[Rfam]
RNA: c-di-AMP riboswitch aptamer (ydaO/yuaA leader)
RNA sequence: AAUUAGAGUACGCUUAAUUUCCGGCGUUAUGCUGGAAAGCGGGGGAACCAAAUGCAAGUGGGGCGAAUAGGUCUUGAUGUCAAGCAUCAGCCUUAGGGUACCAUCUACCCGAGUCCGUCAGCUAACCUCGUCAGCAGUGGAUGGGUCAUCU
Numbered sequence: 001a002a003u004u005a006g007a008g009u010a011c012g013c014u015u016a017a018u019u020u021c022c023g024g025c026g027u028u029a030u031g032c033u034g035g036a037a038a039g040c041g042g043g044g045g046a047a048c049c050a051a052a053u054g055c056a057a058g059u060g061g062g063g064c065g066a067a068u069a070g071g072u073c074u075u076g077a078u079g080u081c082a083a084g085c086a087u088c089a090g091c092c093u094u095a096g097g098g099u100a101c102c103a104u105c106u107a108c109c110c111g112a113g114u115c116c117g118u119c120a121g122c123u124a125a126c127c128u129c130g131u132c133a134g135c136a137g138u139g140g141a142u143g144g145g146u147c148a149u150c151u
Stems, first nucleotide, its partner, number of pairs: 012135003018038009039131006049060002061116003069093004096110004